[Rfam]
RNA sequence: GCGUGGGUCGGCCCAUUCGGCCGGGGUCGGAGUCCCGGACCAGUGGGCUGGGGGACACCGCCGCCCCAUUCCCCGCGGGCGGCGGACGGCGCCGGGAGGCGGAAACGCCUCCCGGUCAGCU
Numbered sequence: 001g002c003g004u005g006g007g008u009c010g011g012c013c014c015a016u017u018c019g020g021c022c023g024g025g026g027u028c029g030g031a032g033u034c035c036c037g038g039a040c041c042a043g044u045g046g047g048c049u050g051g052g053g054g055a056c057a058c059c060g061c062c063g064c065c066c067c068a069u070u071c072c073c074c075g076c077g078g079g080c081g082g083c084g085g086a087c088g089g090c091g092c093c094g095g096g097a098g099g100c101g102g103a104a105a106c107g108c109c110u111c112c113c114g115g116u117c118a119g120c121u
Stems, first nucleotide, its partner, number of pairs: 001120002007087002009050009051056001058085009091116011
RNA: Streptomyces RNA 4115
Organism: Streptomyces sp. WAC04657